Shown here is a 68-nucleotide sequence from Bemisia tabaci, a member of the family "mir-2 microRNA precursor family".
Gene Ontology terms of the family: RISC complex and miRNA-mediated post-transcriptional gene silencing.
RNA sequence: CCGUUCGUCAAAUGGUUGUGAAGUGUUGGUAUCACAGUUCAUAUCACAGCCAUUUUUGACGUGCCGGA
Numbered sequence: 001c002c003g004u005u006c007g008u009c010a011a012a013u014g015g016u017u018g019u020g021a022a023g024u025g026u027u028g029g030u031a032u033c034a035c036a037g038u039u040c041a042u043a044u045c046a047c048a049g050c051c052a053u054u055u056u057u058g059a060c061g062u063g064c065c066g067g068a
Base pairs, nucleotide, nucleotide: 006061007060008059009058010057011056012055013052014051015050016049017048018047019046020045021044024043025042026041
Dot-bracket structure: .....((((((((((((((((..(((..............))))))))))))..))))))).......